[Rfam]
Source information
The record is a 138-nucleotide RNA from Delphinapterus leucas, which matches "Small nucleolar RNA SNORA67" in Rfam. It scores 47 bits against the family's covariance model. The family's consensus secondary structure was predicted with RNAalifold. Rfam 15.1 lists 580 matches to the family in 130 species. Rfam links the family to the GO terms RNA processing and nucleolus. The organism belongs to Delphinapterus, within Eukaryota.
RNA sequence: UUCCAAGGAGAUUCCUUCUCCAGGGAUAAAUCAUAUACCCCAGGAAUGUAGCCCCUUGGAGAAAUUUCUGGUACUGUUGAGAAUAUUGUAAUAGAUGAGCGAUGUGCUAUUUUUCCUCUCCUUAAAUUAUCAGUAUAC
Numbered sequence: 001u002u003c004c005a006a007g008g009a010g011a012u013u014c015c016u017u018c019u020c021c022a023g024g025g026a027u028a029a030a031u032c033a034u035a036u037a038c039c040c041c042a043g044g045a046a047u048g049u050a051g052c053c054c055c056u057u058g059g060a061g062a063a064a065u066u067u068c069u070g071g072u073a074c075u076g077u078u079g080a081g082a083a084u085a086u087u088g089u090a091a092u093a094g095a096u097g098a099g100c101g102a103u104g105u106g107c108u109a110u111u112u113u114u115c116c117u118c119u120c121c122u123u124a125a126a127u128u129a130u131c132a133g134u135a136u137a138c
Stems, first nucleotide, its partner, number of pairs: 002060006010052001019045003023041003027037001069129004075124002079121001081119001088111001091108001